[Rfam]
RNA sequence: GAGCAAAUGAUGAGACUUACUCGGAUUCCCCUUCACGACAUUAUGGAUGAUGCUAUUCGAGUUUCUGAUGCU
Numbered sequence: 001g002a003g004c005a006a007a008u009g010a011u012g013a014g015a016c017u018u019a020c021u022c023g024g025a026u027u028c029c030c031c032u033u034c035a036c037g038a039c040a041u042u043a044u045g046g047a048u049g050a051u052g053c054u055a056u057u058c059g060a061g062u063u064u065c066u067g068a069u070g071c072u
Base pairs, nucleotide, nucleotide: 002072003071004070005069
Source information:
Shown here is a 72-nucleotide sequence from Taxus chinensis, a member of the family "Small nucleolar RNA snoR60". It is annotated as a C/D-box small nucleolar RNA. Clan: SNORD101 clan. The literature on the family includes a 2000 paper in J Biol Chem by Barneche et al., "Fibrillarin genes encode both a conserved nucleolar protein and a novel small nucleolar RNA involved in ribosomal RNA methylation in Arabidopsis thaliana". The match comes from Rfam's covariance-model search (81 bits).